[Rfam]
Record summary:
Rfam assigns this 115-nucleotide sequence from Jeotgalibacillus sp. R-1-5s-1 to the family "SAM riboswitch aptamer (S box leader)".
Nucleotides: 115
Stems, first nucleotide, its partner, number of pairs: 001115008013042001015041003021032003026087004043079004048075002052069005083107001088104006
Number, partner (000 for none) and nucleotide at each position: 001115c002114u003113c004112u005111u006110a007109u008108c009000c010000a011000g012000a013042g014000u015041g016040g017039c018000g019000g020000a021032g022031g023030g024000a025000c026087u027086a028085g029084g030023c031022c032021c033000u034000g035000c036000g037000a038000u039017g040016c041015c042013c043079g044078g045077c046076a047000a048075c049074c050000a051000a052069c053068g054067a055066g056065u057000c058000a059000g060000c061000c062000u063000u064000g065056a066055c067054u068053u069052g070000g071000a072000a073000a074049g075048g076046u077045g078044c079043u080000a081000a082000u083107u084029c085028c086027u087026a088104c089103a090102g091101a092100u093099c094000a095000g096000a097000c098000u099093g100092a101091u102090c103089u104088g105000a106000a107083a108008g109007a110006u111005a112004a113003g114002a115001g

Record summary: Rfam describes the family as follows. The SAM riboswitch is found upstream of a number of genes which code for proteins involved in methionine or cysteine biosynthesis in Gram-positive bacteria. It scores 88 bits against the family's covariance model. Taxonomically the source falls in Jeotgalibacillus (Bacteria, Bacillati, Caryophanales, Caryophanaceae).